[Rfam]
RNA: Small nucleolar RNA ACA64
Organism: Irena cyanogastra
RNA sequence: GCGGUCUGAAAAUCAUCUGGGGUCUGCCGUGGCCCAAGGUGAGAUAACGGCGCCUAUAGCAUCGGGAACAUUAAGCUUAUUGCCCACGGCUGUGUGUGGGGAAUAAAACCCAUGUUCCCAUAAGC
Numbered sequence: 001g002c003g004g005u006c007u008g009a010a011a012a013u014c015a016u017c018u019g020g021g022g023u024c025u026g027c028c029g030u031g032g033c034c035c036a037a038g039g040u041g042a043g044a045u046a047a048c049g050g051c052g053c054c055u056a057u058a059g060c061a062u063c064g065g066g067a068a069c070a071u072u073a074a075g076c077u078u079a080u081u082g083c084c085c086a087c088g089g090c091u092g093u094g095u096g097u098g099g100g101g102a103a104u105a106a107a108a109c110c111c112a113u114g115u116u117c118c119c120a121u122a123a124g125c
Stems, first nucleotide, its partner, number of pairs: 006050003010045001013042004021034004065118001067116005077106005085096003